Rfam assigns this 148-nucleotide RNA from Paenibacillus cremeus to the family "c-di-AMP riboswitch aptamer (ydaO/yuaA leader)". NCBI's taxonomy places the organism under Bacteria, Bacillati, Bacilli, Caryophanales, Paenibacillus. It scores 66 bits against the family's covariance model.
RNA sequence: UACAAGAUUAUGCCGAAUACGGUCGUAUAAGGACCGUUACGGGGGACUUCUUAAUGGGGUGAAUGUAUUUUCCGGCUAUUUACCGGAGAGCUAGGGAACCCUCUCCCGAACCCGUCAACUAACCUCGGAGGCUCUGUGGAGGAGAUCU
Numbered sequence: 001u002a003c004a005a006g007a008u009u010a011u012g013c014c015g016a017a018u019a020c021g022g023u024c025g026u027a028u029a030a031g032g033a034c035c036g037u038u039a040c041g042g043g044g045g046a047c048u049u050c051u052u053a054a055u056g057g058g059g060u061g062a063a064u065g066u067a068u069u070u071u072c073c074g075g076c077u078a079u080u081u082a083c084c085g086g087a088g089a090g091c092u093a094g095g096g097a098a099c100c101c102u103c104u105c106c107c108g109a110a111c112c113c114g115u116c117a118a119c120u121a122a123c124c125u126c127g128g129a130g131g132c133u134c135u136g137u138g139g140a141g142g143a144g145a146u147c148u
Base pairs, nucleotide, nucleotide: 012132013131014130019037020036021035022034023033024032040127041126042125043124044123047056057113058112059111065091066090068088069087070086071085094107095106096105097104